[Rfam]
RNA: Mammalian CPEB3 ribozyme
RNA sequence: GGUUGCAAGUUUGUGACCUCAGCAGAAGAGUUCGUGGUGCGGCCCUGUCAGAUUCCAAUGAAUUUGUGAAUUCUGCU
Numbered sequence: 001g002g003u004u005g006c007a008a009g010u011u012u013g014u015g016a017c018c019u020c021a022g023c024a025g026a027a028g029a030g031u032u033c034g035u036g037g038u039g040c041g042g043c044c045c046u047g048u049c050a051g052a053u054u055c056c057a058a059u060g061a062a063u064u065u066g067u068g069a070a071u072u073c074u075g076c077u
Stems, first nucleotide, its partner, number of pairs: 013045001015044001017042002021077007028040001030038001049066007